[Rfam]
RNA sequence: AGGGCUGUAUCCGCACGGAGCGGCACCACGACACUUGAUUAUAUGAAAAGGUACACAAUACAGUAAUCUGCUCUGAGCCGAUGAGGACCGAGACAGAGGG
Numbered sequence: 001a002g003g004g005c006u007g008u009a010u011c012c013g014c015a016c017g018g019a020g021c022g023g024c025a026c027c028a029c030g031a032c033a034c035u036u037g038a039u040u041a042u043a044u045g046a047a048a049a050g051g052u053a054c055a056c057a058a059u060a061c062a063g064u065a066a067u068c069u070g071c072u073c074u075g076a077g078c079c080g081a082u083g084a085g086g087a088c089c090g091a092g093a094c095a096g097a098g099g100g
Stems, first nucleotide, its partner, number of pairs: 002027002004024005010019002068096003071092003075088001078086002
RNA: pan motif
Organism: Aneurinibacillus danicus